[Rfam]
Rfam assigns this 100-nucleotide RNA from Salirhabdus euzebyi to the family "Purine riboswitch aptamer". It scores 72 bits against the family's covariance model. Pairs were carried over by alignment from the consensus structure, which is taken from published work. Lineage of the source: Bacteria > Bacillota > Bacilli > Caryophanales > Salirhabdus.

RNA sequence: CAUAGAAGUUAUGUUAUCCUUCAUAUAUGCUCGAUAGUAUGGUUCGAGCGUUUCUACCGGACACCAAAAAGAUCCGACUAUGAAGGCAGAUUAGGUAUAU
Numbered sequence: 001c002a003u004a005g006a007a008g009u010u011a012u013g014u015u016a017u018c019c020u021u022c023a024u025a026u027a028u029g030c031u032c033g034a035u036a037g038u039a040u041g042g043u044u045c046g047a048g049c050g051u052u053u054c055u056a057c058c059g060g061a062c063a064c065c066a067a068a069a070a071g072a073u074c075c076g077a078c079u080a081u082g083a084a085g086g087c088a089g090a091u092u093a094g095g096u097a098u099a100u
Base pairs, nucleotide, nucleotide: 018086019085020084021083022082023081024080025079029049030048031047032046033045034044058076059075060074061073